[Rfam]
RNA sequence: AAAUAUUUUUUCGGGAGCUUGUGGAAUCAGGCUGAGAGGGUGGCUAGAGUCAUCGACCGUAUGAACCUGUUGGGUAAUGCCAGCGUAGGGAGGUGUACAUAUUAUAUC
Numbered sequence: 001a002a003a004u005a006u007u008u009u010u011u012c013g014g015g016a017g018c019u020u021g022u023g024g025a026a027u028c029a030g031g032c033u034g035a036g037a038g039g040g041u042g043g044c045u046a047g048a049g050u051c052a053u054c055g056a057c058c059g060u061a062u063g064a065a066c067c068u069g070u071u072g073g074g075u076a077a078u079g080c081c082a083g084c085g086u087a088g089g090g091a092g093g094u095g096u097a098c099a100u101a102u103u104a105u106a107u108c
Base pairs, nucleotide, nucleotide: 007095009093010092012059013058014057017032018031019030020029021028039054040053041052042051043050066089067088068087069086070083071082072081073080
Dot-bracket structure: ......(.((.(((..(((((......)))))......(((((......)))))..)))......((((((((......))))..))))..)).).............